[Rfam]
RNA sequence: ACCGGUCUCCGGUAGUGGUUCCCAGGCUCACUCCUGGGUACUUCGAUCGAAGACCGGC
Number, nucleotide and partner (000 for none) at each position: 001a000002c057003c056004g055005g054006u053007c052008u000009c000010c049011g048012g047013u046014a000015g000016u000017g042018g041019u040020u000021c038022c037023c036024a035025g034026g033027c000028u000029c000030a000031c000032u000033c026034c025035u024036g023037g022038g021039u000040a019041c018042u017043u000044c000045g000046a013047u012048c011049g010050a000051a000052g007053a006054c005055c004056g003057g002058c000